RNA sequence: GAUGUUAAGUAGGCACUUGCAGGCAAAGUUUCUUCAGUUUCGCUACCGUUGACUGCUCUUUCCUACUUUACAUU
Numbered sequence: 001g002a003u004g005u006u007a008a009g010u011a012g013g014c015a016c017u018u019g020c021a022g023g024c025a026a027a028g029u030u031u032c033u034u035c036a037g038u039u040u041c042g043c044u045a046c047c048g049u050u051g052a053c054u055g056c057u058c059u060u061u062c063c064u065a066c067u068u069u070a071c072a073u074u
Stems, first nucleotide, its partner, number of pairs: 001074005007068007019056004024051003

The family of this 74-nucleotide sequence from Culex quinquefasciatus is "mir-2943 microRNA precursor family". The match comes from Rfam's covariance-model search (77 bits). The family has 2 seed sequences and 9 matches in Rfam 15.1. Its family is annotated with miRNA-mediated post-transcriptional gene silencing and RISC complex in the Gene Ontology.